RNA sequence: UCCUCCGUGGCGCAAUUGGCUAGCGCGUCUGACUGUUAAGAGCAUCUUUAAGAUACUUGGCUAUCAGGAGGUUGACAGUUCAAGCCUGUCCGGGGGAG
Number, nucleotide and partner (000 for none) at each position: 001u097002c096003c095004u094005c093006c092007g091008u000009g000010g026011c025012g024013c023014a000015a000016u000017u000018g000019g000020c000021u000022a000023g013024c012025g011026c010027g000028u068029c067030u066031g065032a064033c000034u000035g000036u000037u000038a000039a000040g000041a000042g000043c000044a000045u000046c000047u000048u000049u000050a000051a000052g000053a000054u000055a000056c000057u000058u000059g000060g000061c000062u000063a000064u032065c031066a030067g029068g028069a000070g000071g000072u000073u000074g090075a089076c088077a087078g086079u000080u000081c000082a000083a000084g000085c000086c078087u077088g076089u075090c074091c007092g006093g005094g004095g003096g002097a001098g000
The family of this 98-nucleotide RNA sequence from Aplosporella prunicola is "tRNA". Rfam links the family to the GO term triplet codon-amino acid adaptor activity.